This 131-nucleotide RNA sequence from Ochotona princeps belongs to the Rfam family "Small nucleolar RNA SNORA41". Rfam links the family to the GO terms nucleolus and RNA processing. Rfam describes the family as follows. ACA41 is a member of the H/ACA class of snoRNA that guide the sites of modification of uridines to pseudouridines. It is one of the family's seed sequences. Pairs were carried over by alignment from the consensus structure, which was predicted with PFOLD.
[Rfam]
RNA sequence: UUCCACAGCUACUGGUCUGCAGCUGUUCUUAUGGUAGCGGUUGUGGCAUUCCACUGUGGGAAAGCAACUGUCACAAUUAAACACCUCUUUCUUGGCAAACCAGAAAGGGGGCAUAUUUGUGACAGACAGGA
Numbered sequence: 001u002u003c004c005a006c007a008g009c010u011a012c013u014g015g016u017c018u019g020c021a022g023c024u025g026u027u028c029u030u031a032u033g034g035u036a037g038c039g040g041u042u043g044u045g046g047c048a049u050u051c052c053a054c055u056g057u058g059g060g061a062a063a064g065c066a067a068c069u070g071u072c073a074c075a076a077u078u079a080a081a082c083a084c085c086u087c088u089u090u091c092u093u094g095g096c097a098a099a100c101c102a103g104a105a106a107g108g109g110g111g112c113a114u115a116u117u118u119g120u121g122a123c124a125g126a127c128a129g130g131a
Base pairs, nucleotide, nucleotide: 003059004058005057006056017046018045019044020043021042022041023040024039025038073120074119075118076117084111085110086109087107088106089105090104091103092102
Dot-bracket structure: ..((((..........(((((((((............))))))))).........)))).............((((.......(((((((((.........)))))).))).....))))...........